The record is a 76-nucleotide RNA from Cnephaeus nilssonii, which matches "mir-9223 microRNA precursor family" in Rfam. The base pairs follow the family's consensus structure, which was predicted with RNAalifold. A search with the family's covariance model found it, with a score of 56 bits. NCBI's taxonomy places the organism under Eukaryota, Eumetazoa, Bilateria, Deuterostomia, Cnephaeus.

[Rfam]
RNA sequence: GGCAGUUCUCGGGUGACACACCUCAGAACCAGAGAGGAGGGAGCCGGAUUCUGGGGUGUGUCACCCAAGAACCGCC
Numbered sequence: 001g002g003c004a005g006u007u008c009u010c011g012g013g014u015g016a017c018a019c020a021c022c023u024c025a026g027a028a029c030c031a032g033a034g035a036g037g038a039g040g041g042a043g044c045c046g047g048a049u050u051c052u053g054g055g056g057u058g059u060g061u062c063a064c065c066c067a068a069g070a071a072c073c074g075c076c
Stems, first nucleotide, its partner, number of pairs: 002075002005072005011066007019058005025052004030047001032045001